[Rfam]
RNA: Mammalian CPEB3 ribozyme
Organism: Laticauda laticaudata
RNA sequence: AUUGGAACUUUGGGGGCCAUAGAAGGAGCGUUCACGUCACGGUCCCUGUCAGGUAUCUGUUUACCUGAGAAUCCUUCU
Numbered sequence: 001a002u003u004g005g006a007a008c009u010u011u012g013g014g015g016g017c018c019a020u021a022g023a024a025g026g027a028g029c030g031u032u033c034a035c036g037u038c039a040c041g042g043u044c045c046c047u048g049u050c051a052g053g054u055a056u057c058u059g060u061u062u063a064c065c066u067g068a069g070a071a072u073c074c075u076u077c078u
Stems, first nucleotide, its partner, number of pairs: 013046006021078007028040001030038001050067006